RNA sequence: CACCGACAUCAAUGAUUCGUUCUGCGAACCUGCGCCCACCGCCAGAUAGGCAUGCAUCCCCAGCUCUUUCAUCUGCUGUUCGCCGAUAACGCGGGUGGUGAUAUGUGUGCUGAAGGCAUCCGCCAGUUGACGCGCCUGUGAGGCCAGGUAACCGGCGUUGCAUAUGUUCGGCGGCAUGUUGCCGAGAUCUUUGGC
Numbered sequence: 001c002a003c004c005g006a007c008a009u010c011a012a013u014g015a016u017u018c019g020u021u022c023u024g025c026g027a028a029c030c031u032g033c034g035c036c037c038a039c040c041g042c043c044a045g046a047u048a049g050g051c052a053u054g055c056a057u058c059c060c061c062a063g064c065u066c067u068u069u070c071a072u073c074u075g076c077u078g079u080u081c082g083c084c085g086a087u088a089a090c091g092c093g094g095g096u097g098g099u100g101a102u103a104u105g106u107g108u109g110c111u112g113a114a115g116g117c118a119u120c121c122g123c124c125a126g127u128u129g130a131c132g133c134g135c136c137u138g139u140g141a142g143g144c145c146a147g148g149u150a151a152c153c154g155g156c157g158u159u160g161c162a163u164a165u166g167u168u169c170g171g172c173g174g175c176a177u178g179u180u181g182c183c184g185a186g187a188u189c190u191u192u193g194g195c
Base pairs, nucleotide, nucleotide: 005189006188014030016028017027018026019025020024034042035041050059062077063076064075078135079134081132082131084129085128086127087126091123092122093121094120095119096118097117099112100111102109103108137162138161140159141158143156144155145154167186168185169184170183171182172181

The record is a 195-nucleotide RNA sequence from Serratia symbiotica, which matches "Yersinia sRNA 276" in Rfam. NCBI's taxonomy places the organism under Bacteria, Enterobacterales, Yersiniaceae, Serratia, Serratia symbiotica. A search with the family's covariance model found it, with a score of 185 bits. By type it is an antisense RNA. The literature on the family includes a 2015 paper in PLoS Genet by Nuss et al., "Transcriptomic profiling of Yersinia pseudotuberculosis reveals reprogramming of the Crp regulon by temperature and uncovers Crp as a master regulator of small RNAs".